[Rfam]
RNA sequence: GCGGGAGGAAGCUCACUGUAGAGGUCACGUGCUGAGUGCUCAGUCACUCCACCAAUCAUCUCGGGGAAGGUCUGAGACAAGAGCCAAUCGCUGUCCUCACAGGACAUCACCUGACCCAGAUGAGCGAGUGCACAGACACCAUGGAGCCACAGCAGAGCAUCAAACGCACGAGACGUCGGGAACUGCCGAUCCAGCGCAGCUACCGACCGAUGCGGCUCUCGCGCGGCCUUGGAAACGCUCGCGGCUGGCGAAUGAGUGCGAUGUGUGAGCUGGUCCACGUGACCAGAACCCAAUUCAGACUACUCUCCACCCGC
Numbered sequence: 001g002c003g004g005g006a007g008g009a010a011g012c013u014c015a016c017u018g019u020a021g022a023g024g025u026c027a028c029g030u031g032c033u034g035a036g037u038g039c040u041c042a043g044u045c046a047c048u049c050c051a052c053c054a055a056u057c058a059u060c061u062c063g064g065g066g067a068a069g070g071u072c073u074g075a076g077a078c079a080a081g082a083g084c085c086a087a088u089c090g091c092u093g094u095c096c097u098c099a100c101a102g103g104a105c106a107u108c109a110c111c112u113g114a115c116c117c118a119g120a121u122g123a124g125c126g127a128g129u130g131c132a133c134a135g136a137c138a139c140c141a142u143g144g145a146g147c148c149a150c151a152g153c154a155g156a157g158c159a160u161c162a163a164a165c166g167c168a169c170g171a172g173a174c175g176u177c178g179g180g181a182a183c184u185g186c187c188g189a190u191c192c193a194g195c196g197c198a199g200c201u202a203c204c205g206a207c208c209g210a211u212g213c214g215g216c217u218c219u220c221g222c223g224c225g226g227c228c229u230u231g232g233a234a235a236c237g238c239u240c241g242c243g244g245c246u247g248g249c250g251a252a253u254g255a256g257u258g259c260g261a262u263g264u265g266u267g268a269g270c271u272g273g274u275c276c277a278c279g280u281g282a283c284c285a286g287a288a289c290c291c292a293a294u295u296c297a298g299a300c301u302a303c304u305c306u307c308c309a310c311c312c313g314c
Stems, first nucleotide, its partner, number of pairs: 001314004007308003012269005021062004034049005072298005082246004092106005107123003111119002124242007144228001270286006
RNA: Nuclear RNase P
Organism: Bagarius yarrelli